The record is a 103-nucleotide RNA sequence from Clostridium cavendishii, which matches "Purine riboswitch aptamer" in Rfam. Rfam links the family to the GO term purine nucleobase biosynthetic process. NCBI's taxonomy places the organism under Bacteria, Bacillati, Clostridia, Clostridiaceae, Clostridium cavendishii. The match comes from Rfam's covariance-model search (84 bits).
RNA sequence: UAUAAUUGAAUAAUAUUCAUAUCGUAUAUGCUAGGAAAUAUGGUCCUAGCGUUUCUACCAGGAAGCCAUUAACUACCUGACUACGAAUGUACUGGUUUUAUAA
Numbered sequence: 001u002a003u004a005a006u007u008g009a010a011u012a013a014u015a016u017u018c019a020u021a022u023c024g025u026a027u028a029u030g031c032u033a034g035g036a037a038a039u040a041u042g043g044u045c046c047u048a049g050c051g052u053u054u055c056u057a058c059c060a061g062g063a064a065g066c067c068a069u070u071a072a073c074u075a076c077c078u079g080a081c082u083a084c085g086a087a088u089g090u091a092c093u094g095g096u097u098u099u100a101u102a103a
Stems, first nucleotide, its partner, number of pairs: 018089003022086005030050007059079004064074002